RNA sequence: UGUAGAAAAAGGCAAACCUUUUGAAAGAAAGGGACGCAAAGCUGUUGGUCUAAGGGGGAACCUAUGAUUGCAAAGCUACCUCA
Numbered sequence: 001u002g003u004a005g006a007a008a009a010a011g012g013c014a015a016a017c018c019u020u021u022u023g024a025a026a027g028a029a030a031g032g033g034a035c036g037c038a039a040a041g042c043u044g045u046u047g048g049u050c051u052a053a054g055g056g057g058g059a060a061c062c063u064a065u066g067a068u069u070g071c072a073a074a075g076c077u078a079c080c081u082c083a
Stems, first nucleotide, its partner, number of pairs: 012037002017032006040077004045073003048068003055062002
c-di-GMP-I riboswitch aptamer: an 83-nucleotide sequence from Alkalibacillus haloalkaliphilus. Gene Ontology term of the family: cyclic-di-GMP binding. Taxonomically the source falls in Alkalibacillus (Bacteria, Bacillota, Caryophanales, Bacillaceae).